[Rfam]
RNA sequence: UUCUUAUCAAGAGAAGUCGAGGGACUGGCCCGAUGAAACUUCAGCAACCAACAUUAAGUCAGGUGCUAAAUCCAGUGGCGAAUGCCAGAAGAUGAGAA
Number, nucleotide and partner (000 for none) at each position: 001u098002u097003c096004u095005u094006a093007u092008c091009a000010a000011g000012a000013g042014a041015a040016g039017u038018c000019g000020a000021g031022g030023g029024a000025c075026u074027g073028g072029c023030c022031c021032g000033a000034u000035g000036a000037a000038a017039c016040u015041u014042c013043a067044g066045c065046a064047a000048c063049c062050a000051a059052c058053a000054u000055u000056a000057a000058g052059u051060c000061a000062g049063g048064u046065g045066c044067u043068a000069a000070a000071u090072c028073c027074a026075g025076u087077g086078g085079c084080g000081a000082a000083u000084g079085c078086c077087a076088g000089a000090a071091g008092a007093u006094g005095a004096g003097a002098a001
SAM riboswitch aptamer (S box leader): a 98-nucleotide RNA sequence from Solibacillus silvestris. It scores 87 bits against the family's covariance model.